[Rfam]
RNA sequence: GAAACAUCCUUAUGGAGCAGUACUUGCUUCAGUGGGGCUUGGGUGCUCACUGAGUCUGCCUCUUGAGUGUGUUGCU
Numbered sequence: 001g002a003a004a005c006a007u008c009c010u011u012a013u014g015g016a017g018c019a020g021u022a023c024u025u026g027c028u029u030c031a032g033u034g035g036g037g038c039u040u041g042g043g044u045g046c047u048c049a050c051u052g053a054g055u056c057u058g059c060c061u062c063u064u065g066a067g068u069g070u071g072u073u074g075c076u
Stems, first nucleotide, its partner, number of pairs: 001075001003073005009067004014062002017059003022055002029053008037044002